[Rfam]
RNA sequence: GGGUGUGCCGGUCGUCACCGGCACAGGCAUAUUGGACGGUCGGGCCGCCGUCC
Dot-bracket structure: ....((((((((....)))))))).........(((((((......)))))))
Rfam assigns this 53-nucleotide sequence to the family "nhaA-I RNA". The base pairs follow the family's consensus structure, which is taken from published work. Rfam describes the family as follows. Acidobacteria, Alphaproteobacteria, Betaproteobacteria and Gammaproteobacteria, Verrucomicrobia, cand. division NC10.